[Rfam]
Rfam assigns this 162-nucleotide sequence from Bartonella henselae to the family "6S / SsrS RNA". It is one of the family's seed sequences. The base pairs follow the family's consensus structure, which is taken from published work. Rfam 15.1 lists 5,006 matches to the family in 4,638 species. Rfam describes the family as follows. E. coli 6S RNA was the first non coding RNA to be sequenced, but its function was unknown until recently. It consists of 184 nucleotides that fold into an extended hairpin structure with a large single-stranded internal bulge. The 6S RNA specifically associates with RNA polymerase holoenzyme containing the sigma70 specificity factor. This interaction represses expression from a sigma70-dependent promoter during stationary phase. 6S RNA homologs have recently been identified in most bacterial genomes. NCBI's taxonomy places the organism under Bacteria, Pseudomonadati, Pseudomonadota, Hyphomicrobiales, Bartonella.

RNA sequence: GGUGUUCUGCGCCUCUCGACAGGAAAUAACAUAUUCCUGAGACCUUAGUGAUUUCCAAGGGAGCUGUCCCUGAUUAAGCUCGUGGGCUUUUUCAUAUGGCGCCCACCUAUUUAUAUAGGUUCCCAGGGAUCAACUUUUUCCAUCGGUUGUUGUGGAUCACCA
Numbered sequence: 001g002g003u004g005u006u007c008u009g010c011g012c013c014u015c016u017c018g019a020c021a022g023g024a025a026a027u028a029a030c031a032u033a034u035u036c037c038u039g040a041g042a043c044c045u046u047a048g049u050g051a052u053u054u055c056c057a058a059g060g061g062a063g064c065u066g067u068c069c070c071u072g073a074u075u076a077a078g079c080u081c082g083u084g085g086g087c088u089u090u091u092u093c094a095u096a097u098g099g100c101g102c103c104c105a106c107c108u109a110u111u112u113a114u115a116u117a118g119g120u121u122c123c124c125a126g127g128g129a130u131c132a133a134c135u136u137u138u139u140c141c142a143u144c145g146g147u148u149g150u151u152g153u154g155g156a157u158c159a160c161c162a
Stems, first nucleotide, its partner, number of pairs: 002160003006156006012149001015146001017145003034129004039124001041122001042120003059104003063100005072093002076089003